RNA sequence: ACACGGAUCCGGGCCCCUCUGGCAACCUUGGGCAGCAGGUUGCGAUGUCGGAACCUUCAU
Dot-bracket structure: .....(.(((((.........(((((((........)))))))....))))).)......
Numbered sequence: 001a002c003a004c005g006g007a008u009c010c011g012g013g014c015c016c017c018u019c020u021g022g023c024a025a026c027c028u029u030g031g032g033c034a035g036c037a038g039g040u041u042g043c044g045a046u047g048u049c050g051g052a053a054c055c056u057u058c059a060u
Stems, first nucleotide, its partner, number of pairs: 006054001008052005022043007